[Rfam]
RNA sequence: CCUAUGGAGAGUUGUAACCACUCUAGUAGUUCCGACGAACGAGAACUCGAUGAAAUAGGAA
Numbered sequence: 001c002c003u004a005u006g007g008a009g010a011g012u013u014g015u016a017a018c019c020a021c022u023c024u025a026g027u028a029g030u031u032c033c034g035a036c037g038a039a040c041g042a043g044a045a046c047u048c049g050a051u052g053a054a055a056u057a058g059g060a061a
Stems, first nucleotide, its partner, number of pairs: 001059005009048005021043003029036002
Notes:
The record is a 61-nucleotide RNA sequence, which matches "RAGATH-18 RNA" in Rfam. About the family: Actinobacteria, Firmicutes, Fusobacteria, Thermotogae (1 example).